[Rfam]
RNA sequence: ACACAAGAGAGGAGGUGGUCCUGCGUUGAAUACCAAGAGGACUUGUGAGGUGGCUGUCCGCUAGCGGACGCCGCGCGAUGGGACUACCAGCGGCCACCUCGUGGCCAGCUUCGCGUGUUGCCUGCUAGCGAAUACCAGGCAGUCACCAGGCCCCCGACGCCCCGGGAAUCAGUCCGGCCCGGGCCCCACGGAAACCUUGCCGUGCGGGAAGGGCGUCGGGGGCUUCUUUAU
Numbered sequence: 001a002c003a004c005a006a007g008a009g010a011g012g013a014g015g016u017g018g019u020c021c022u023g024c025g026u027u028g029a030a031u032a033c034c035a036a037g038a039g040g041a042c043u044u045g046u047g048a049g050g051u052g053g054c055u056g057u058c059c060g061c062u063a064g065c066g067g068a069c070g071c072c073g074c075g076c077g078a079u080g081g082g083a084c085u086a087c088c089a090g091c092g093g094c095c096a097c098c099u100c101g102u103g104g105c106c107a108g109c110u111u112c113g114c115g116u117g118u119u120g121c122c123u124g125c126u127a128g129c130g131a132a133u134a135c136c137a138g139g140c141a142g143u144c145a146c147c148a149g150g151c152c153c154c155c156g157a158c159g160c161c162c163c164g165g166g167a168a169u170c171a172g173u174c175c176g177g178c179c180c181g182g183g184c185c186c187c188a189c190g191g192a193a194a195c196c197u198u199g200c201c202g203u204g205c206g207g208g209a210a211g212g213g214c215g216u217c218g219g220g221g222g223c224u225u226c227u228u229u230a231u
Base pairs, nucleotide, nucleotide: 014058015057016056017055018054019053059130060129061128062127063126064125065124067122069120070119072117073116074115075114076113077112078111148225149224150223151222152221153220154219155218156217157216158215159214160213162182163181164180165179166178
Rfam assigns this 231-nucleotide RNA sequence from Amycolatopsis xylanica to the family "Actinobacteria sRNA Ms_IGR-5".
By type it is a small RNA.
The source organism's lineage runs through Bacteria, Bacillati, Actinomycetota, Pseudonocardiales and Amycolatopsis.
The match comes from Rfam's covariance-model search (103 bits).